[Rfam]
RNA sequence: ACCAUCCUUUCCUUGGGGCUAGGGCUACUGCCCAGUGAGCACAUAGUGAGGGCAGAGCUGCUGACACUGACACAAAAUUCCUGCAUCAGCUACAGCUUUGCUUUACCUUGGCACGGUUUCUGGAAAA
Numbered sequence: 001a002c003c004a005u006c007c008u009u010u011c012c013u014u015g016g017g018g019c020u021a022g023g024g025c026u027a028c029u030g031c032c033c034a035g036u037g038a039g040c041a042c043a044u045a046g047u048g049a050g051g052g053c054a055g056a057g058c059u060g061c062u063g064a065c066a067c068u069g070a071c072a073c074a075a076a077a078u079u080c081c082u083g084c085a086u087c088a089g090c091u092a093c094a095g096c097u098u099u100g101c102u103u104u105a106c107c108u109u110g111g112c113a114c115g116g117u118u119u120c121u122g123g124a125a126a127a
Base pairs, nucleotide, nucleotide: 006018007017008016009015022061024059028055029054030053031052032051033050039047040046083114086111087110088109091105092104094102095101096100
RNA: U4atac minor spliceosomal RNA